The record is a 90-nucleotide RNA sequence, which matches "DUF3800-VII RNA" in Rfam. By type it is a small RNA.
RNA sequence: AGCAAGCAUUCGCUGGAACAAUCUUACGUUGUCCGAAAGGACGGCAGCCCCAAUUAGGGUGGGAUCGUAAGACCAGGGGCUUGCUAAGGU
Number, nucleotide and partner (000 for none) at each position: 001a085002g084003c083004a082005a081006g080007c079008a000009u000010u000011c077012g000013c076014u075015g074016g073017a000018a000019c000020a000021a000022u072023c071024u070025u069026a068027c067028g045029u044030u043031g042032u041033c040034c039035g000036a000037a000038a000039g034040g033041a032042c031043g030044g029045c028046a000047g000048c059049c058050c057051c000052a000053a000054u000055u000056a000057g050058g049059g048060u000061g000062g000063g000064a000065u000066c000067g027068u026069a025070a024071g023072a022073c016074c015075a014076g013077g011078g000079g007080c006081u005082u004083g003084c002085u001086a000087a000088g000089g000090u000